The family of this 172-nucleotide RNA from Cohnella sp. AR92 is "FMN riboswitch aptamer (RFN element)". The source organism's lineage runs through Bacteria, Bacillota, Caryophanales, Paenibacillaceae and Cohnella. It scores 101 bits against the family's covariance model.
RNA sequence: UCUUACCUUCGGGGCGGGGUGCAAUUCCCCACCGACGGUGAUCGGCAGAUCGGAGGAUCUGUCGUCAGUCCGUGACCCGCGGAUGCUGCUUCCGGAUAACCGGAGCCGCAGAGCGGUUGACCCGGUGCGAAUCCGGGACCGACAGUUAAAGUCUGGAUGGGAGAAGGAAGCG
Numbered sequence: 001u002c003u004u005a006c007c008u009u010c011g012g013g014g015c016g017g018g019g020u021g022c023a024a025u026u027c028c029c030c031a032c033c034g035a036c037g038g039u040g041a042u043c044g045g046c047a048g049a050u051c052g053g054a055g056g057a058u059c060u061g062u063c064g065u066c067a068g069u070c071c072g073u074g075a076c077c078c079g080c081g082g083a084u085g086c087u088g089c090u091u092c093c094g095g096a097u098a099a100c101c102g103g104a105g106c107c108g109c110a111g112a113g114c115g116g117u118u119g120a121c122c123c124g125g126u127g128c129g130a131a132u133c134c135g136g137g138a139c140c141g142a143c144a145g146u147u148a149a150a151g152u153c154u155g156g157a158u159g160g161g162a163g164a165a166g167g168a169a170g171c172g
Base pairs, nucleotide, nucleotide: 003170004169006167007166008165009164010163017029018028019027031152032151033141034140035073036072037071038070068139069138077116078115079114080113121137122136123135124134125133143155144154145153